[Rfam]
RNA sequence: CGCCUAACCCUUGUGGGCUAAACCUCCGAGGUAUGGCAUCAAAAUCCUCCGCAACAUAGAUGGUCGCCUGACCAUACUUCUGUUGCGGAGGUCUAUCCCGAAAGGGAUAGGGUGUUCCUUUGGGAUACC
Numbered sequence: 001c002g003c004c005u006a007a008c009c010c011u012u013g014u015g016g017g018c019u020a021a022a023c024c025u026c027c028g029a030g031g032u033a034u035g036g037c038a039u040c041a042a043a044a045u046c047c048u049c050c051g052c053a054a055c056a057u058a059g060a061u062g063g064u065c066g067c068c069u070g071a072c073c074a075u076a077c078u079u080c081u082g083u084u085g086c087g088g089a090g091g092u093c094u095a096u097c098c099c100g101a102a103a104g105g106g107a108u109a110g111g112g113u114g115u116u117c118c119u120u121u122g123g124g125a126u127a128c129c
Stems, first nucleotide, its partner, number of pairs: 002037003009031005015025003046091011058078002060075005093110007111129006

About this RNA: The record is a 129-nucleotide RNA sequence, which matches "LOOT RNA" in Rfam.